[Rfam]
The family of this 74-nucleotide RNA from Crocodylus porosus is "Mammalian CPEB3 ribozyme". The base pairs follow the family's consensus structure, which is taken from published work. It scores 44 bits against the family's covariance model.
RNA sequence: AUGGCCAUAACUGCCAUAGCAAAAAUGCUCACAUCACGGCCCUGUCAAAUUCCAAUGAAUCUGCAAAUUCUGCU
Numbered sequence: 001a002u003g004g005c006c007a008u009a010a011c012u013g014c015c016a017u018a019g020c021a022a023a024a025a026u027g028c029u030c031a032c033a034u035c036a037c038g039g040c041c042c043u044g045u046c047a048a049a050u051u052c053c054a055a056u057g058a059a060u061c062u063g064c065a066a067a068u069u070c071u072g073c074u
Stems, first nucleotide, its partner, number of pairs: 013040003018074004023069002026036002046063002049060004